[Rfam]
RNA sequence: CAUUUCUUUCGGGGCAGGGUGAAAUUCCCGACCGACGGUAAAUAGAGCGAUCUAUAAGUCCGUGACCCAAUUUAUUUAAAUUGGUUGAUCUAGUGUGAGUCUAGAACCGACAGUUAAAGUCUGGAUGGGAGAAAGAGUAG
Number, nucleotide and partner (000 for none) at each position: 001c000002a000003u000004u137005u136006c135007u134008u133009u132010c131011g000012g000013g000014g000015c000016a000017g029018g028019g027020u000021g000022a000023a000024a000025u000026u000027c019028c018029c017030g000031a120032c119033c109034g108035a063036c062037g061038g060039u000040a000041a000042a000043u000044a000045g000046a000047g000048c000049g000050a000051u000052c000053u000054a000055u000056a000057a000058g107059u106060c038061c037062g036063u035064g000065a000066c000067c084068c083069a000070a000071u000072u000073u000074a000075u000076u000077u000078a000079a000080a000081u000082u000083g068084g067085u000086u000087g000088a000089u105090c104091u103092a102093g101094u000095g000096u000097g000098a000099g000100u000101c093102u092103a091104g090105a089106a059107c058108c034109g033110a000111c123112a122113g121114u000115u000116a000117a000118a000119g032120u031121c113122u112123g111124g000125a000126u000127g000128g000129g000130a000131g010132a009133a008134a007135g006136a005137g004138u000139a000140g000
Rfam assigns this 140-nucleotide RNA from Alkalihalobacillus trypoxylicola to the family "FMN riboswitch aptamer (RFN element)". Rfam's curators write: The RFN element is a highly conserved domain that is found frequently in the 5'-untranslated regions of prokaryotic mRNAs that encode for flavin mononucleotide (FMN) biosynthesis and transport proteins. The match comes from Rfam's covariance-model search (120 bits). Taxonomically the source falls in Alkalihalobacillus (Bacteria, Bacillati, Bacilli, Caryophanales).